Background: The record is a 182-nucleotide sequence from Albidovulum denitrificans, which matches "Ruegeria cis52 sRNA" in Rfam.
RNA sequence: UCCUCAGCGCGUGUUUCAUCACCACGUUGCGGAAGCUGACGCCUUUCAGCCGCGCGGUGCGGAUAUAUUGCGCGGUCAUCACCUCGGUCAUCGAGGCGCGGGUCAUGCGGGCGAUAUAGCCGAUGCCGUAAAGCGCGACGGUCAGGACCGGCAGGAAGAAGUUUUCGAAAUUCGGGGCGUCC
Numbered sequence: 001u002c003c004u005c006a007g008c009g010c011g012u013g014u015u016u017c018a019u020c021a022c023c024a025c026g027u028u029g030c031g032g033a034a035g036c037u038g039a040c041g042c043c044u045u046u047c048a049g050c051c052g053c054g055c056g057g058u059g060c061g062g063a064u065a066u067a068u069u070g071c072g073c074g075g076u077c078a079u080c081a082c083c084u085c086g087g088u089c090a091u092c093g094a095g096g097c098g099c100g101g102g103u104c105a106u107g108c109g110g111g112c113g114a115u116a117u118a119g120c121c122g123a124u125g126c127c128g129u130a131a132a133g134c135g136c137g138a139c140g141g142u143c144a145g146g147a148c149c150g151g152c153a154g155g156a157a158g159a160a161g162u163u164u165u166c167g168a169a170a171u172u173c174g175g176g177g178c179g180u181c182c
Stems, first nucleotide, its partner, number of pairs: 004141002008137005014131002016128001020125002028123001031120001040111001042109001046105001048103001050101005055075001057073006082096005145182003148175004154165004

Source information: A search with the family's covariance model found it, with a score of 135 bits. For this family Rfam cites "Experimental Identification of Small Non-Coding RNAs in the Model Marine Bacterium Ruegeria pomeroyi DSS-3" (Rivers et al., Front Microbiol, 2016). Rfam 15.1 lists 277 matches to the family in 275 species. The base pairs follow the family's consensus structure, which was predicted with RNAfold.